[Rfam]
RNA sequence: GUGACAGAAGAGAGUAAACACACAUGGUUCAUUUUCUUGCAAAUUCGUCAUGCUUGAAGCUCUGUGUGCUUGCUCUCUAACUGUCAU
Numbered sequence: 001g002u003g004a005c006a007g008a009a010g011a012g013a014g015u016a017a018a019c020a021c022a023c024a025u026g027g028u029u030c031a032u033u034u035u036c037u038u039g040c041a042a043a044u045u046c047g048u049c050a051u052g053c054u055u056g057a058a059g060c061u062c063u064g065u066g067u068g069c070u071u072g073c074u075c076u077c078u079a080a081c082u083g084u085c086a087u
Stems, first nucleotide, its partner, number of pairs: 001087007010077008019068003023064002